Rfam assigns this 85-nucleotide RNA sequence from Nadsonia fulvescens to the family "Small nucleolar RNA R38". NCBI's taxonomy places the organism under Eukaryota, Opisthokonta, Fungi, Ascomycota, Nadsonia fulvescens var. elongata. The match comes from Rfam's covariance-model search (58 bits). snoR38 is a C/D box small nucleolar RNA conserved across yeast, human, Arabidopsis and rice. It is encoded in the intron of elongation factor-1 gamma in both pombe and cerevisiae. snoR38 guides the methylation of 2'-O-ribose sites in 28S rRNA. The family has 19 seed sequences and 2,295 matches in Rfam 15.1.
RNA sequence: GUUCUUUAAAUGAUGAAUAUUCUUUUUUUUACAGUUAUCCCUGUCUUAAUCAAUCUAUGUUGAGAAUCGUAAACCUGAAAAGAAC
Numbered sequence: 001g002u003u004c005u006u007u008a009a010a011u012g013a014u015g016a017a018u019a020u021u022c023u024u025u026u027u028u029u030u031a032c033a034g035u036u037a038u039c040c041c042u043g044u045c046u047u048a049a050u051c052a053a054u055c056u057a058u059g060u061u062g063a064g065a066a067u068c069g070u071a072a073a074c075c076u077g078a079a080a081a082g083a084a085c
Stems, first nucleotide, its partner, number of pairs: 001085007